[Rfam]
RNA sequence: CUCUUAUCAAGAGUGGUGGAGGGACUGGCCCGAUGAAACCCAGCAACCAGUUGGUUCAGACGAAUCAACAAGGUGCUAAUUCCUGCAGAGAUUUUAUCUCUGAAAGAUGAGAG
Numbered sequence: 001c002u003c004u005u006a007u008c009a010a011g012a013g014u015g016g017u018g019g020a021g022g023g024a025c026u027g028g029c030c031c032g033a034u035g036a037a038a039c040c041c042a043g044c045a046a047c048c049a050g051u052u053g054g055u056u057c058a059g060a061c062g063a064a065u066c067a068a069c070a071a072g073g074u075g076c077u078a079a080u081u082c083c084u085g086c087a088g089a090g091a092u093u094u095u096a097u098c099u100c101u102g103a104a105a106g107a108u109g110a111g112a113g
Stems, first nucleotide, its partner, number of pairs: 001113008013041001015040003021031003025085001027083002042077004047073002050069006081105001086102006

This 113-nucleotide sequence from Hazenella coriacea belongs to the Rfam family "SAM riboswitch aptamer (S box leader)".
The match comes from Rfam's covariance-model search (101 bits).